[Rfam]
A member of the RNA family "Small nucleolar RNA SNORD34" from Oreocharis arfaki, 73 nucleotides long. A search with the family's covariance model found it, with a score of 45 bits.
RNA sequence: CGGUGUCAAUGAUGUCACUUUUACCUACAUUGUUUGACCCUGCCUGAGAAAAACCCCAAAUCCUGAGGCACCU
Number, nucleotide and partner (000 for none) at each position: 001c000002g072003g000004u070005g069006u068007c067008a000009a000010u000011g000012a000013u000014g000015u000016c000017a000018c000019u000020u000021u000022u000023a000024c000025c000026u000027a000028c000029a000030u000031u000032g000033u000034u000035u000036g000037a000038c000039c000040c000041u000042g000043c000044c000045u000046g000047a000048g000049a000050a000051a000052a000053a000054c000055c000056c000057c000058a000059a000060a000061u000062c000063c000064u000065g000066a000067g007068g006069c005070a004071c000072c002073u000

A reference for the family is Chen et al. (2003), "The high diversity of snoRNAs in plants: identification and comparative study of 120 snoRNA genes from Oryza sativa", Nucleic Acids Res.